[Rfam]
RNA sequence: UCUUUUACGUUUCCUUAUCACUUCAUCGGUCCAGUUUUUUCUUGUUUACUGGACGGAGAACUGAUAAGGGCUUGUUAAGGC
Numbered sequence: 001u002c003u004u005u006u007a008c009g010u011u012u013c014c015u016u017a018u019c020a021c022u023u024c025a026u027c028g029g030u031c032c033a034g035u036u037u038u039u040u041c042u043u044g045u046u047u048a049c050u051g052g053a054c055g056g057a058g059a060a061c062u063g064a065u066a067a068g069g070g071c072u073u074g075u076u077a078a079g080g081c
Base pairs, nucleotide, nucleotide: 012070013069014068015067016066017065018064019063020062022060023059024058026056027055030052031051

Record summary
Rfam assigns this 81-nucleotide sequence from Armadillidium nasatum to the family "mir-184 microRNA precursor family". It scores 69 bits against the family's covariance model.